[Rfam]
RNA sequence: ACAUAAUUUUGGCAAACUUGUUGAAAAACAAGGACGCAAAACUACGAAUCUAAGGCUGGUCUCUUAGCUAUGAUAGUCGGGUUGCAGGA
Numbered sequence: 001a002c003a004u005a006a007u008u009u010u011g012g013c014a015a016a017c018u019u020g021u022u023g024a025a026a027a028a029c030a031a032g033g034a035c036g037c038a039a040a041a042c043u044a045c046g047a048a049u050c051u052a053a054g055g056c057u058g059g060u061c062u063c064u065u066a067g068c069u070a071u072g073a074u075a076g077u078c079g080g081g082u083u084g085c086a087g088g089a
Base pairs, nucleotide, nucleotide: 012037013036017032018031019030020029021028022027040083041082042081043080045079046078047077048074049073050072055068056067057066058065

This 89-nucleotide RNA from Sediminibacillus albus belongs to the Rfam family "c-di-GMP-I riboswitch aptamer". The base pairs follow the family's consensus structure, which is taken from published work. It scores 79 bits against the family's covariance model.